This 154-nucleotide RNA sequence from Amborella trichopoda belongs to the Rfam family "MIR8565 microRNA precursor family".
[Rfam]
RNA sequence: CUCACACCCAUGUGUGCAGGACCCCAAAGGAUCACUAAUAAAUUUGACACAGAUAUCUAGAAAAGUUAUCACAUGGGUGUAGGAUUUGACUUUUCUAGAGAUCUAUGCUAAAUUUAACGGUGAUCCUUUGGGGUCUUGCACACAUGGGUGUGGG
Numbered sequence: 001c002u003c004a005c006a007c008c009c010a011u012g013u014g015u016g017c018a019g020g021a022c023c024c025c026a027a028a029g030g031a032u033c034a035c036u037a038a039u040a041a042a043u044u045u046g047a048c049a050c051a052g053a054u055a056u057c058u059a060g061a062a063a064a065g066u067u068a069u070c071a072c073a074u075g076g077g078u079g080u081a082g083g084a085u086u087u088g089a090c091u092u093u094u095c096u097a098g099a100g101a102u103c104u105a106u107g108c109u110a111a112a113u114u115u116a117a118c119g120g121u122g123a124u125c126c127u128u129u130g131g132g133g134u135c136u137u138g139c140a141c142a143c144a145u146g147g148g149u150g151u152g153g154g
Base pairs, nucleotide, nucleotide: 002153003152004151005150006149007148008147009146010145011144012143013142015140016139017138018137019136020135021134022133023132024131025130026129027128028127030125031124032123034121035120036119039116040115041114042113043112044111045110046109048107049106051104052103053102054101056099057098058097059096060095061094062093063092064091065090066089067088068087069082071080072079073078